The record is a 135-nucleotide sequence from Halalkalibacter nanhaiisediminis, which matches "Ribosomal protein L10 leader" in Rfam. Gene Ontology term of the family: regulation of gene expression.
RNA sequence: UGAAAAUUGAAUGUCAUACCGUAGACAGUAGGAGCGUUUUUCGCUUAAUUUCCUACCGAGGUAAGCAAUAGAUACAGAAAGAUCAUCUGUGUUUGUAUGCCCUCAUGUCUGCAUGGGGGCUUUUUAUAUGCUUCU
Numbered sequence: 001u002g003a004a005a006a007u008u009g010a011a012u013g014u015c016a017u018a019c020c021g022u023a024g025a026c027a028g029u030a031g032g033a034g035c036g037u038u039u040u041u042c043g044c045u046u047a048a049u050u051u052c053c054u055a056c057c058g059a060g061g062u063a064a065g066c067a068a069u070a071g072a073u074a075c076a077g078a079a080a081g082a083u084c085a086u087c088u089g090u091g092u093u094u095g096u097a098u099g100c101c102c103u104c105a106u107g108u109c110u111g112c113a114u115g116g117g118g119g120c121u122u123u124u125u126a127u128a129u130g131c132u133u134c135u
Base pairs, nucleotide, nucleotide: 028056029055030054031053032052033051034044035043036042099120100119101118102117103116104115105114106113107112
It scores 93 bits against the family's covariance model.